[Rfam]
RNA: mir-938 microRNA precursor family
RNA sequence: GAAAGUGUACCAUGUGCACUUAAAGAUGAAGCCGGUGCACCUUCAUGAACUGUGGUACACCUUUAAGAACUUGGU
Numbered sequence: 001g002a003a004a005g006u007g008u009a010c011c012a013u014g015u016g017c018a019c020u021u022a023a024a025g026a027u028g029a030a031g032c033c034g035g036u037g038c039a040c041c042u043u044c045a046u047g048a049a050c051u052g053u054g055g056u057a058c059a060c061c062u063u064u065a066a067g068a069a070c071u072u073g074g075u
Stems, first nucleotide, its partner, number of pairs: 009075004014070002019067007027059002030056001032054001035050002038047002